[Rfam]
RNA sequence: AUUGUGAUACCUUUGGUUACAACAUAAGACAUGGGAGCUUUCUUGGAAUGCUCGUGUCUUGUGUUGCAGCCAGAGGUGACCA
Numbered sequence: 001a002u003u004g005u006g007a008u009a010c011c012u013u014u015g016g017u018u019a020c021a022a023c024a025u026a027a028g029a030c031a032u033g034g035g036a037g038c039u040u041u042c043u044u045g046g047a048a049u050g051c052u053c054g055u056g057u058c059u060u061g062u063g064u065u066g067c068a069g070c071c072a073g074a075g076g077u078g079a080c081c082a
Stems, first nucleotide, its partner, number of pairs: 011075002015071004020066011032054004